[Rfam]
RNA sequence: UUAACUCAAAUUUGUAUGCAGUUAGAGCAGCAUCCCUAGCGGCAAAUGUAGGCAAACGUUCCAACUCCAUACAAAUUUAAGUUA
Numbered sequence: 001u002u003a004a005c006u007c008a009a010a011u012u013u014g015u016a017u018g019c020a021g022u023u024a025g026a027g028c029a030g031c032a033u034c035c036c037u038a039g040c041g042g043c044a045a046a047u048g049u050a051g052g053c054a055a056a057c058g059u060u061c062c063a064a065c066u067c068c069a070u071a072c073a074a075a076u077u078u079a080a081g082u083u084a
Base pairs, nucleotide, nucleotide: 008078009077010076011075012074013073014072015071016070018068020066021065022064023063025061026060027059028058034052035051039047